[Rfam]
A member of the RNA family "ncRNA Repressor of NFAT (nuclear factor of activated T cells)" from Acanthisitta chloris, 341 nucleotides long. The organism belongs to Acanthisitta, within Eukaryota. The pairing is the family consensus, mapped onto this sequence.
RNA sequence: CUCCCCUUCAUGUGCUGUGUUAAUCCACACGCGAAAAUCUCUUUUAAUGAGGAGUGAUACAGUUAUGAACUCUCUAGAGCCAUAAUUAGAGCAAACUAAUUGAAGUUGUGUUUUGACACACUUUCCAAAUUCACGGGUACUGCAUGACAUAUUCACAACACUACUGCUGCACACCGUGGUGACAGCAAAAUCAUUAGGCUAAUAACGCUUAUUUGCAUUCCGAUCACGCCAGCGGCGGCCGUUAAACGCUGCCUCAACCCGUACUCGCUUGCUCGGAAAGUUUCCACUGAAAGAUAUUAACAGUAAUUAUUGGUACUUUAGUGAAGCUCUGAUGUUAAGGA
Numbered sequence: 001c002u003c004c005c006c007u008u009c010a011u012g013u014g015c016u017g018u019g020u021u022a023a024u025c026c027a028c029a030c031g032c033g034a035a036a037a038u039c040u041c042u043u044u045u046a047a048u049g050a051g052g053a054g055u056g057a058u059a060c061a062g063u064u065a066u067g068a069a070c071u072c073u074c075u076a077g078a079g080c081c082a083u084a085a086u087u088a089g090a091g092c093a094a095a096c097u098a099a100u101u102g103a104a105g106u107u108g109u110g111u112u113u114u115g116a117c118a119c120a121c122u123u124u125c126c127a128a129a130u131u132c133a134c135g136g137g138u139a140c141u142g143c144a145u146g147a148c149a150u151a152u153u154c155a156c157a158a159c160a161c162u163a164c165u166g167c168u169g170c171a172c173a174c175c176g177u178g179g180u181g182a183c184a185g186c187a188a189a190a191u192c193a194u195u196a197g198g199c200u201a202a203u204a205a206c207g208c209u210u211a212u213u214u215g216c217a218u219u220c221c222g223a224u225c226a227c228g229c230c231a232g233c234g235g236c237g238g239c240c241g242u243u244a245a246a247c248g249c250u251g252c253c254u255c256a257a258c259c260c261g262u263a264c265u266c267g268c269u270u271g272c273u274c275g276g277a278a279a280g281u282u283u284c285c286a287c288u289g290a291a292a293g294a295u296a297u298u299a300a301c302a303g304u305a306a307u308u309a310u311u312g313g314u315a316c317u318u319u320a321g322u323g324a325a326g327c328u329c330u331g332a333u334g335u336u337a338a339g340g341a
Stems, first nucleotide, its partner, number of pairs: 018334005024325001026323003031318001033316001039054006059310001061308006070079003089266003093262001102124004107120005136240002140235001165181005185229002198216002201213004